[Rfam]
RNA sequence: GGAAAGUCGGCAGUGGACGGAUACCUUGCCAACCCCGGUCAGGUCCGGAAGGAAGCAGCCAUGACAAGUUUUGUCCGGGUCAUUGUCCGGCUUUCCACC
Numbered sequence: 001g002g003a004a005a006g007u008c009g010g011c012a013g014u015g016g017a018c019g020g021a022u023a024c025c026u027u028g029c030c031a032a033c034c035c036c037g038g039u040c041a042g043g044u045c046c047g048g049a050a051g052g053a054a055g056c057a058g059c060c061a062u063g064a065c066a067a068g069u070u071u072u073g074u075c076c077g078g079g080u081c082a083u084u085g086u087c088c089g090g091c092u093u094u095c096c097a098c099c
Stems, first nucleotide, its partner, number of pairs: 004093005010086006018077006025068004030063001037060003044053003
RNA: Bacterial small signal recognition particle RNA